[Rfam]
RNA sequence: ACAUGAGGUAGAGGUCGCGGUAUUUAUCAGUACCUUAAGGGAGUCCGAAAGACGAUGAAGCUUUGGGAAAGGAAAUACCGCCGAAGGGAAUAUACCUCAAAUAUAUUCCCUGGGACUAAGGUUAAUAGCCUUAGGACUGUCACAGUGUUUUCACUGUGGAGUGCUAUUUCAAGA
Number, nucleotide and partner (000 for none) at each position: 001a000002c000003a000004u000005g000006a169007g168008g167009u166010a165011g164012a000013g000014g000015u000016c000017g081018c080019g079020g078021u077022a076023u075024u074025u073026a000027u000028c000029a000030g000031u000032a000033c066034c065035u000036u000037a062038a000039g000040g000041g000042a000043g000044u000045c000046c000047g000048a000049a000050a000051g000052a000053c000054g000055a000056u000057g000058a000059a000060g000061c000062u037063u000064u000065g034066g033067g000068a000069a000070a000071g000072g000073a025074a024075a023076u022077a021078c020079c019080g018081c017082c000083g000084a000085a111086g110087g109088g108089a107090a106091u105092a104093u103094a102095c000096c000097u000098c000099a000100a000101a000102u094103a093104u092105a091106u090107u089108c088109c087110c086111u085112g138113g137114g000115a000116c134117u133118a132119a131120g130121g129122u128123u000124a000125a000126u000127a000128g122129c121130c120131u119132u118133a117134g116135g000136a000137c113138u112139g000140u159141c158142a157143c156144a155145g154146u153147g000148u000149u000150u000151u000152c000153a146154c145155u144156g143157u142158g141159g140160a000161g000162u000163g000164c011165u010166a009167u008168u007169u006170c000171a000172a000173g000174a000
RNA: Lysine riboswitch aptamer